[Rfam]
RNA sequence: AGGAGGAGGAAACUAAAUGAACGAAGUUCAUUUAUGGGAAUGUUUCCGACGAAUUGCCGCUGACCGAAGGGAGGGGGCGCUACAUUAU
Numbered sequence: 001a002g003g004a005g006g007a008g009g010a011a012a013c014u015a016a017a018u019g020a021a022c023g024a025a026g027u028u029c030a031u032u033u034a035u036g037g038g039a040a041u042g043u044u045u046c047c048g049a050c051g052a053a054u055u056g057c058c059g060c061u062g063a064c065c066g067a068a069g070g071g072a073g074g075g076g077g078c079g080c081u082a083c084a085u086u087a088u
Stems, first nucleotide, its partner, number of pairs: 008047006016032006056078003060074002064070002

The record is an 88-nucleotide sequence, which matches "GA-cis RNA" in Rfam. The sequence is in the family's curated seed alignment. Rfam classes the family as a small RNA.